Rfam assigns this 199-nucleotide sequence from Colwellia sp. PAMC 20917 to the family "Lysine riboswitch aptamer". A search with the family's covariance model found it, with a score of 83 bits. NCBI's taxonomy places the organism under Bacteria, Pseudomonadota, Alteromonadales, Colwelliaceae, Colwellia.
RNA sequence: UCAACCAGAAGAGGAGCAGUAGCUAGGUAGAUAACACGAAGAACCACCAUUCUUUUGACUGUUAUUGAGGGAGACUAUUGCCGAGAGUAAUUAGCGAGUGGCGUUAUUUAUUCGGUUACUAGGGCUGAAUCCCUAGGAUUGUCACCUCUAGUUAGUAUAUUAAGUGCUAAUUAGAUUAUGGUGGAGAGCUUCUGGCUGA
Numbered sequence: 001u002c003a004a005c006c007a008g009a010a011g012a013g014g015a016g017c018a019g020u021a022g023c024u025a026g027g028u029a030g031a032u033a034a035c036a037c038g039a040a041g042a043a044c045c046a047c048c049a050u051u052c053u054u055u056u057g058a059c060u061g062u063u064a065u066u067g068a069g070g071g072a073g074a075c076u077a078u079u080g081c082c083g084a085g086a087g088u089a090a091u092u093a094g095c096g097a098g099u100g101g102c103g104u105u106a107u108u109u110a111u112u113c114g115g116u117u118a119c120u121a122g123g124g125c126u127g128a129a130u131c132c133c134u135a136g137g138a139u140u141g142u143c144a145c146c147u148c149u150a151g152u153u154a155g156u157a158u159a160u161u162a163a164g165u166g167c168u169a170a171u172u173a174g175a176u177u178a179u180g181g182u183g184g185a186g187a188g189c190u191u192c193u194g195g196c197u198g199a
Base pairs, nucleotide, nucleotide: 006194007193008192009191010190011189016081017080018079019078020077021076022075024073030066031065032064033063034062035061036060085113086112087111088110089109090108092106093105094104095103096102114140115139116138117137119136120135121134122133123132124131142184143183144182145181146180